[Rfam]
RNA sequence: AGAACCUUUAAAACAGUCCCGUGAGGCUGGCAAGGUUUGCGUGAACGUCGUAACGAAGUGCGGUACGAUACGUAGGUUGUGCUGUGCUUGUAUACGUGUAUAUUGUGAAGCCGAGCGAAAGCUCCUUGCCUAAUCAGGGCAAGGGGCUUUUUUUGU
Numbered sequence: 001a002g003a004a005c006c007u008u009u010a011a012a013a014c015a016g017u018c019c020c021g022u023g024a025g026g027c028u029g030g031c032a033a034g035g036u037u038u039g040c041g042u043g044a045a046c047g048u049c050g051u052a053a054c055g056a057a058g059u060g061c062g063g064u065a066c067g068a069u070a071c072g073u074a075g076g077u078u079g080u081g082c083u084g085u086g087c088u089u090g091u092a093u094a095c096g097u098g099u100a101u102a103u104u105g106u107g108a109a110g111c112c113g114a115g116c117g118a119a120a121g122c123u124c125c126u127u128g129c130c131u132a133a134u135c136a137g138g139g140c141a142a143g144g145g146g147c148u149u150u151u152u153u154u155g156u
Stems, first nucleotide, its partner, number of pairs: 003037006014029005056089014117151014
RNA: PyrR binding site